Rfam assigns this 128-nucleotide RNA from Nannospalax galili to the family "Small nucleolar RNA SNORA63". From the family's description: E3 belongs to the H/ACA class of snoRNAs and is involved in the processing of eukaryotic pre-rRNA and has regions of complementarity to 18S rRNA. E3 is encoded in introns in the gene for protein synthesis initiation factor 4AII. The base pairs follow the family's consensus structure, which was predicted with PFOLD. By type it is an H/ACA-box small nucleolar RNA.
[Rfam]
RNA sequence: AAGCAGGAUUUAACUACACUGUAGCUGUUAAGUGCUAUGUUGUCAUUCCCCUGCUCAAAAAAAUGUUGUUUCUUAACCAUACCUGUCUGCUAGACACCUAGCAGCCAAGGACGCUUGGUCUCAUCCAU
Number, nucleotide and partner (000 for none) at each position: 001a000002a000003g054004c053005a052006g051007g050008a000009u000010u000011u000012a000013a000014c000015u000016a043017c042018a041019c000020u039021g038022u037023a036024g035025c034026u000027g000028u000029u000030a000031a000032g000033u000034g025035c024036u023037a022038u021039g020040u000041u018042g017043u016044c000045a000046u000047u000048c000049c000050c007051c006052u005053g004054c003055u000056c000057a000058a000059a000060a000061a000062a000063a000064u000065g000066u000067u000068g000069u000070u000071u000072c000073u000074u000075a000076a000077c000078c000079a000080u000081a000082c109083c000084u107085g106086u000087c104088u103089g102090c101091u000092a000093g000094a000095c000096a000097c000098c000099u000100a000101g090102c089103a088104g087105c000106c085107a084108a000109g082110g000111a000112c000113g000114c000115u000116u000117g000118g000119u000120c000121u000122c000123a000124u000125c000126c000127a000128u000
Gene Ontology terms of the family: nucleolus and RNA processing.